[Rfam]
RNA sequence: UUAUAUAUAUGGGGGGUCAUUGUAAAAGCGUGCUCGUCACGACCCCUGCCAGCCCUUUCCAGGGCUGCUUUGCA
Numbered sequence: 001u002u003a004u005a006u007a008u009a010u011g012g013g014g015g016g017u018c019a020u021u022g023u024a025a026a027a028g029c030g031u032g033c034u035c036g037u038c039a040c041g042a043c044c045c046c047u048g049c050c051a052g053c054c055c056u057u058u059c060c061a062g063g064g065c066u067g068c069u070u071u072g073c074a
Base pairs, nucleotide, nucleotide: 013046014045015044016043017042018041021074022073023072024071025070026069028040030038050067051066052065053064054063055062056061
Dot-bracket structure: ............((((((..[[[[[[.(.(.......).)))))))...(((((((....))))))).]]]]]]
The family of this 74-nucleotide RNA from Parnassius apollo is "Mammalian CPEB3 ribozyme". The match comes from Rfam's covariance-model search (44 bits). The organism belongs to Parnassius, within Eukaryota.